Shown here is a 98-nucleotide RNA from Bacteroides uniformis, a member of the family "RT-17 RNA".
By type it is a small RNA.
Rfam's curators put it in the seed alignment.

RNA sequence: GGCCUCACCCCACGGUGAAAAACAAACGACAGGCGGGCAGUGCCGGUAGACGGGUUUAUCCCGGCCGACAGCAACGAAGCCGGAAGAAUUGCAGACCA
Numbered sequence: 001g002g003c004c005u006c007a008c009c010c011c012a013c014g015g016u017g018a019a020a021a022a023c024a025a026a027c028g029a030c031a032g033g034c035g036g037g038c039a040g041u042g043c044c045g046g047u048a049g050a051c052g053g054g055u056u057u058a059u060c061c062c063g064g065c066c067g068a069c070a071g072c073a074a075c076g077a078a079g080c081c082g083g084a085a086g087a088a089u090u091g092c093a094g095a096c097c098a
Stems, first nucleotide, its partner, number of pairs: 006017004041073003049066001052062003